RNA sequence: AUUGGUUUGGUGGUGGCUGCUCUUUAAGAUUUAAGAGAGGAAAGUCCGAGCUACAUAAGACAAGGAUUCCAUUUAACGAAUGGCUAGGGCGACCUAAGGGAAAGUGCAACAGAAAAUAACCGCUCAUUUGUGCUUAUUUUUUGCAAAAAUGUUUUUGCAAGCAUUAAAAAGCACCGCUAAAAGAAGGAUAAGCACAAAUGAGUAAGGGUGAAAAGGUGGGGUAAGAGCCUACCGACUGCUAGGCAACUAGCAGUGCCGUGCAAACCCAAUCCGUAGCAAAAAGGGCGUGGUAAAUGUCUUAGAUUUUGCCCUUUGCUUGAGGUGUGUUGUGAAAUGCACCCUAGAUAAAUAGCCACCCUCGACAGAACUCGGCUUAUACCAAGCCAAUGGAU
Numbered sequence: 001a002u003u004g005g006u007u008u009g010g011u012g013g014u015g016g017c018u019g020c021u022c023u024u025u026a027a028g029a030u031u032u033a034a035g036a037g038a039g040g041a042a043a044g045u046c047c048g049a050g051c052u053a054c055a056u057a058a059g060a061c062a063a064g065g066a067u068u069c070c071a072u073u074u075a076a077c078g079a080a081u082g083g084c085u086a087g088g089g090c091g092a093c094c095u096a097a098g099g100g101a102a103a104g105u106g107c108a109a110c111a112g113a114a115a116a117u118a119a120c121c122g123c124u125c126a127u128u129u130g131u132g133c134u135u136a137u138u139u140u141u142u143g144c145a146a147a148a149a150u151g152u153u154u155u156u157g158c159a160a161g162c163a164u165u166a167a168a169a170a171g172c173a174c175c176g177c178u179a180a181a182a183g184a185a186g187g188a189u190a191a192g193c194a195c196a197a198a199u200g201a202g203u204a205a206g207g208g209u210g211a212a213a214a215g216g217u218g219g220g221g222u223a224a225g226a227g228c229c230u231a232c233c234g235a236c237u238g239c240u241a242g243g244c245a246a247c248u249a250g251c252a253g254u255g256c257c258g259u260g261c262a263a264a265c266c267c268a269a270u271c272c273g274u275a276g277c278a279a280a281a282a283g284g285g286c287g288u289g290g291u292a293a294a295u296g297u298c299u300u301a302g303a304u305u306u307u308g309c310c311c312u313u314u315g316c317u318u319g320a321g322g323u324g325u326g327u328u329g330u331g332a333a334a335u336g337c338a339c340c341c342u343a344g345a346u347a348a349a350u351a352g353c354c355a356c357c358c359u360c361g362a363c364a365g366a367a368c369u370c371g372g373c374u375u376a377u378a379c380c381a382a383g384c385c386a387a388u389g390g391a392u
Base pairs, nucleotide, nucleotide: 001388002387003386004385005384006383007382008381009380010379012357013356014355015354016353017352018351020037021036022035023034024033026031042375043374044373046372047371048370049369050368051276052275053274054273060300064272065271066270067269068268069083070082071081072080073079084098085096086095087094088093099267100266104265105264106261107260108259120207121206122203123202124201125200126199127198128197129196130195131194132193133192134191135190136189137188138187139186140185141184142183215233216232217231218230219229220228234256235254236253237252238251239250240249241248242247280314281313282312283311284310285309286308292306293305294304295303321340322339323338324337325336326335327334328333
RNA: Bacterial RNase P class A